This 265-nucleotide sequence from Thermoactinomyces mirandus belongs to the Rfam family "Bacterial large signal recognition particle RNA".
From the family's description: The signal recognition particle (SRP) is a universally conserved ribonucleoprotein involved in the co-translational targeting of proteins to membranes.

RNA sequence: CCGCGCUAGACGGGGAGUUAGCGGUGCCCUGUAACCCGUAAUCCGCUAUAACGGGGUUGAUGCCUGUCCGAGGCGUAUUUUGUGUGAGGCUGGUCUGAAUCAUCAGUGUUGAUGAUUGGGUCCUGCGCAACGAUUACUUCUGAACCGUGUCAGGUCCUGACGGAAGCAGCACUAAGGAAGCUCUAUCGUGUGCCGCAGGGGUGCCUGGUCUGAGCUGCCGGUUCAGGGGCCGCUCAGGCAAAGUGCGUCGGAGACAGGCGCGCGG
Dot-bracket structure: ((((((..(((((((.(((...))).))))....(((((...........))))))))....((((((...(((((..(((((.((((...((.((((((....(((......((((((((((((((((.((((..(((((.....((((....(((....)))....))))...)))))....))))))...))))))...))))))))...)))....))))))...)).)))).)))))..)))))...)))))).))))))
Rfam links the family to the GO terms signal recognition particle, plasma membrane targeting and SRP-dependent cotranslational protein targeting to membrane, signal sequence recognition.
The family's RNA type in Rfam is non-coding RNA gene.